[Rfam]
RNA sequence: AAUUGUGGUGGUUUUCUUUCUGGCACAUUUGUUAAGUUUUCAAGUGUACCUAACUCUGCCACAUAUAUUAUAUCGGAGCUGGCAAAGGCUUGAUGACAAAGAGAUCUUCUGCCUUUCCUCCAUCAGAGAUGGCUCCCACAUGC
Dot-bracket structure: ....(((((((..........((..((((((.........))))))..)).....)))))))............(((((((((....)))................((((..............))))..)))))).......
Shown here is a 143-nucleotide sequence from Otolemur garnettii, a member of the family "Small nucleolar RNA SNORA12". The sequence is in the family's curated seed alignment. The literature on the family includes a 2005 paper in Nucleic Acids Res by Gu et al., "A novel experimental approach for systematic identification of box H/ACA snoRNAs from eukaryotes". NCBI's taxonomy places the organism under Eukaryota, Teleostomi, Sarcopterygii, Lorisiformes, Otolemur. The family's RNA type in Rfam is H/ACA-box small nucleolar RNA. The family's consensus secondary structure was predicted with RNAalifold. Rfam 15.1 lists 571 matches to the family in 378 species.